This 94-nucleotide RNA from Nicotiana tabacum belongs to the Rfam family "MIR6152 microRNA precursor family". Rfam 15.1 lists 5,807 matches to the family in 3 species.

RNA sequence: UGGAUAUUAUUAUAUUCGAUUGUAUUCACGGCGUGAAAUAGGGGAUUACAAUGUUUUUAAACGGAAAGUGAAUCAAUUAACAUAAUAGACUCAU
Number, nucleotide and partner (000 for none) at each position: 001u093002g092003g091004a000005u000006a000007u088008u087009a086010u085011u084012a083013u082014a000015u080016u079017c000018g078019a077020u000021u075022g074023u000024a073025u072026u071027c070028a069029c068030g000031g000032c063033g062034u061035g057036a056037a055038a054039u053040a052041g000042g000043g000044g000045a000046u000047u000048a000049c000050a000051a000052u040053g039054u038055u037056u036057u035058u000059a000060a000061a034062c033063g032064g000065a000066a000067a000068g029069u028070g027071a026072a025073u024074c022075a021076a000077u019078u018079a016080a015081c000082a013083u012084a011085a010086u009087a008088g007089a000090c000091u003092c002093a001094u000